[Rfam]
RNA sequence: UAGCGGGCGAAAGUCCCGCCCUAACAAUUGACCAGUUCGGUUAGGUAGCUAUGGUGUACGUAUGGUGGAGUAAUCCACCAUACGGAAGCAACACCGACUAACGUGGUUCCGGUUGGCUAGGCUCUUGCCUUGUCAUGACCCAGUCAGUGAACGCGAGCAAACCUACAGCCCGUAACGUAA
Dot-bracket structure: ...................(((((................))))).......(((((.((((((...((....))...))))))......)))))..........(((.........................................)))....((.............)).......
The record is a 180-nucleotide RNA sequence from Thermoactinomyces mirandus, which matches "Group II catalytic intron D1-D4-4" in Rfam.
Its family is annotated with Group II intron splicing in the Gene Ontology.
It scores 74 bits against the family's covariance model.
The pairing is the family consensus, mapped onto this sequence.
Rfam describes the family as follows. Group II introns are found in rRNA, tRNA and mRNA of organelles in fungi, plants and protists, and also in mRNA in bacteria.
The literature on the family includes a 2001 paper in Trends Genet by Bonen and Vogel, "The ins and outs of group II introns".